[Rfam]
RNA sequence: GGGCCGUGAUGACGAAAUUCGUUUCUCGAUUCUGAUAUACAAAGAGUAUAUCAAAGGCGUAUAUACGAGUAUGUAUAUAUGCUUAUGAUGACUGUAUUUGUGCGUGUCUGAGCCUU
Dot-bracket structure: ((((...........................................................................................................)))).
RNA: small nucleolar RNA snoR126